[Rfam]
The family of this 62-nucleotide RNA from Oryctolagus cuniculus is "U7 small nuclear RNA".
The literature on the family includes a 1994 paper in Nucleic Acids Res by Spycher et al., "3' end processing of mouse histone pre-mRNA: evidence for additional base-pairing between U7 snRNA and pre-mRNA".
The organism belongs to Oryctolagus, within Eukaryota.
RNA sequence: CAGUGUUACAGCUCUUUUCGAAUUUGUCUAGCAGGCUUUCCGGUUUUCACCGGAAAGCCCCC
Number, nucleotide and partner (000 for none) at each position: 001c000002a000003g000004u000005g000006u000007u000008a000009c000010a000011g000012c000013u000014c000015u000016u000017u000018u000019c000020g000021a000022a000023u000024u000025u000026g000027u000028c000029u000030a000031g000032c000033a000034g059035g058036c057037u056038u055039u054040c053041c052042g051043g050044u049045u000046u000047u000048c000049a044050c043051c042052g041053g040054a039055a038056a037057g036058c035059c034060c000061c000062c000